A member of the RNA family "Archaeal large subunit ribosomal RNA" from Paraphoma chrysanthemicola, 493 nucleotides of a longer RNA. Its family is annotated with structural constituent of ribosome and ribosome in the Gene Ontology. A search with the family's covariance model found it, with a score of 841 bits. Pairs were carried over by alignment from the consensus structure, which is taken from published work. The organism belongs to Paraphoma, within Eukaryota.
RNA sequence: CCUGCCAAAGUUUCUCUUAGGAUAGUAGUAACGUAUUUAGUUUUAUAAGGUAAAGCGAAUAAUUAGAGGCCUAGAAGUUAAAAUAACCUUUACCUAUUCUCAAACUUUAAAUAUGUAAGAAGUCCUUGUUACUUAAUUAAACGUAGAUACUUAAAUAUACUAUUACUAGUAGGCUAUUUUUAGUAAGCAGAACUAGCAAUACAGGAUAAACUAAACGCAAAGUUAAGGUGCUAGAAUAUACACUUAUUAGACACUAUAAAAGGUGUUAGUUUAUCUAGAUAGUAGGACAGUAGCUAUAGAAGUUAGAAUCUGCUAAGAAGUAUAUAACAACUUACCUGCUAAAUAAACUAGCCCUAAAAAUAGAUAGCGCUUAAGCGUGUUACCUAUACUCUGCUACUGGGGCAGAAUUUAUACCCUAGUAAGUAGGCAGGCGUAGAGGCUUGUAACGAAGCCUUAGGGGUAACCCUAGGUAGAAUAGCCUCUAGUGCAGAUC
Numbered sequence: 001c002c003u004g005c006c007a008a009a010g011u012u013u014c015u016c017u018u019a020g021g022a023u024a025g026u027a028g029u030a031a032c033g034u035a036u037u038u039a040g041u042u043u044u045a046u047a048a049g050g051u052a053a054a055g056c057g058a059a060u061a062a063u064u065a066g067a068g069g070c071c072u073a074g075a076a077g078u079u080a081a082a083a084u085a086a087c088c089u090u091u092a093c094c095u096a097u098u099c100u101c102a103a104a105c106u107u108u109a110a111a112u113a114u115g116u117a118a119g120a121a122g123u124c125c126u127u128g129u130u131a132c133u134u135a136a137u138u139a140a141a142c143g144u145a146g147a148u149a150c151u152u153a154a155a156u157a158u159a160c161u162a163u164u165a166c167u168a169g170u171a172g173g174c175u176a177u178u179u180u181u182a183g184u185a186a187g188c189a190g191a192a193c194u195a196g197c198a199a200u201a202c203a204g205g206a207u208a209a210a211c212u213a214a215a216c217g218c219a220a221a222g223u224u225a226a227g228g229u230g231c232u233a234g235a236a237u238a239u240a241c242a243c244u245u246a247u248u249a250g251a252c253a254c255u256a257u258a259a260a261a262g263g264u265g266u267u268a269g270u271u272u273a274u275c276u277a278g279a280u281a282g283u284a285g286g287a288c289a290g291u292a293g294c295u296a297u298a299g300a301a302g303u304u305a306g307a308a309u310c311u312g313c314u315a316a317g318a319a320g321u322a323u324a325u326a327a328c329a330a331c332u333u334a335c336c337u338g339c340u341a342a343a344u345a346a347a348c349u350a351g352c353c354c355u356a357a358a359a360a361u362a363g364a365u366a367g368c369g370c371u372u373a374a375g376c377g378u379g380u381u382a383c384c385u386a387u388a389c390u391c392u393g394c395u396a397c398u399g400g401g402g403c404a405g406a407a408u409u410u411a412u413a414c415c416c417u418a419g420u421a422a423g424u425a426g427g428c429a430g431g432c433g434u435a436g437a438g439g440c441u442u443g444u445a446a447c448g449a450a451g452c453c454u455u456a457g458g459g460g461u462a463a464c465c466c467u468a469g470g471u472a473g474a475a476u477a478g479c480c481u482c483u484a485g486u487g488c489a490g491a492u493c
Base pairs, nucleotide, nucleotide: 001431002430003429004428005427006426011024013022014021015020026169027167028166029165030164031163036159038157042155043154044153045152055142061138062137063136064135065134066133173197174196175195176194178192179191180190181189203212204211217394218393219392221390222389223388227384228383229382236381238380239379240378241377243375261355262354263353265352266351267350268349269348270347271346272345273344274343282339283338284337285336286335288312289311290310294306295305313317318333323330395421396420399416400415401414432487434484435483436482437481438480439479440478441477443476444475451471452470453469455468456467457466458465459464